[Rfam]
RNA sequence: AGAUGUCUUCGGGGCAGGGUGAGGGAAUGUUGCGAUGUUCCCAAUUCCCGAUCGGCGGUAGAGCCCGCGACCUUGUACAUGUGUCUCGCUUGAGGCCGGUAUAGGUGGACCUGGGGGAGUUCCAGGGCCGACGGUAUAGUCCGGAUGGGAGAAGACAGAU
Numbered sequence: 001a002g003a004u005g006u007c008u009u010c011g012g013g014g015c016a017g018g019g020u021g022a023g024g025g026a027a028u029g030u031u032g033c034g035a036u037g038u039u040c041c042c043a044a045u046u047c048c049c050g051a052u053c054g055g056c057g058g059u060a061g062a063g064c065c066c067g068c069g070a071c072c073u074u075g076u077a078c079a080u081g082u083g084u085c086u087c088g089c090u091u092g093a094g095g096c097c098g099g100u101a102u103a104g105g106u107g108g109a110c111c112u113g114g115g116g117g118a119g120u121u122c123c124a125g126g127g128c129c130g131a132c133g134g135u136a137u138a139g140u141c142c143g144g145a146u147g148g149g150a151g152a153a154g155a156c157a158g159a160u
Base pairs, nucleotide, nucleotide: 004157005156006155007154008153009152010151017049018048019047051140052139053130054129055068056067057066058065063128064127072105073104074103075102076101077100078099110126111125112124113123114122132143133142134141